[Rfam]
RNA sequence: GGCCUCCCUCUGUGGGGCGAUCAAUCACCCCAAAGUGGUAGGCCCCACUCACUUAGCUGGGUCUCUGUGAUUGAUCGCCCCGCAGAGGGAGGCC
Numbered sequence: 001g002g003c004c005u006c007c008c009u010c011u012g013u014g015g016g017g018c019g020a021u022c023a024a025u026c027a028c029c030c031c032a033a034a035g036u037g038g039u040a041g042g043c044c045c046c047a048c049u050c051a052c053u054u055a056g057c058u059g060g061g062u063c064u065c066u067g068u069g070a071u072u073g074a075u076c077g078c079c080c081c082g083c084a085g086a087g088g089g090a091g092g093c094c
Stems, first nucleotide, its partner, number of pairs: 001094028
RNA: mir-9242 microRNA precursor family